[Rfam]
Description: A member of the RNA family "RAGATH-30 RNA", 59 nucleotides long. The family's consensus secondary structure is taken from published work. Rfam classes the family as a small RNA. It is one of the family's seed sequences.

RNA sequence: GUAAAAAUAAGAAUUUUAUCGAAUUAGUUUACUAAGGUAAAAGCUGUCUGCGAUAGCAA
Numbered sequence: 001g002u003a004a005a006a007a008u009a010a011g012a013a014u015u016u017u018a019u020c021g022a023a024u025u026a027g028u029u030u031a032c033u034a035a036g037g038u039a040a041a042a043g044c045u046g047u048c049u050g051c052g053a054u055a056g057c058a059a
Stems, first nucleotide, its partner, number of pairs: 028041005043057006
Dot-bracket structure: ...........................(((((....))))).((((((...))))))..